[Rfam]
RNA sequence: ACUACAUUGAAGAGCUCGGACCAGAAAGUGCUGCAUCACACUGUAAACAUUAGCUUCUUCUCUACCGCUGCAAGUGUCUUUCCCUGUAUCAUAACUGAUGUGGUUUGCUCUGGGAUGAAAAUGCCCAUUUGCACCUGCUUGAUUCGGCUGUGUGCUUUCGAAUUUAUUUUCUUGGGC
Numbered sequence: 001a002c003u004a005c006a007u008u009g010a011a012g013a014g015c016u017c018g019g020a021c022c023a024g025a026a027a028g029u030g031c032u033g034c035a036u037c038a039c040a041c042u043g044u045a046a047a048c049a050u051u052a053g054c055u056u057c058u059u060c061u062c063u064a065c066c067g068c069u070g071c072a073a074g075u076g077u078c079u080u081u082c083c084c085u086g087u088a089u090c091a092u093a094a095c096u097g098a099u100g101u102g103g104u105u106u107g108c109u110c111u112g113g114g115a116u117g118a119a120a121a122u123g124c125c126c127a128u129u130u131g132c133a134c135c136u137g138c139u140u141g142a143u144u145c146g147g148c149u150g151u152g153u154g155c156u157u158u159c160g161a162a163u164u165u166a167u168u169u170u171c172u173u174g175g176g177c
Stems, first nucleotide, its partner, number of pairs: 005176001067134001069133008077119001079117001081115003088109001090107002093105004
Dot-bracket structure: ....(.............................................................(.(((((((((.(.(((....(.((.((((.....)))))).)...))).).)......))))))))).........................................).

Shown here is a 177-nucleotide RNA sequence from Triticum urartu, a member of the family "Small nucleolar RNA Z112". A reference for the family is Liang et al. (2002), "A novel gene organization: intronic snoRNA gene clusters from Oryza sativa", Nucleic Acids Res. The organism belongs to Triticum, within Eukaryota. The base pairs follow the family's consensus structure, which was predicted with PFOLD.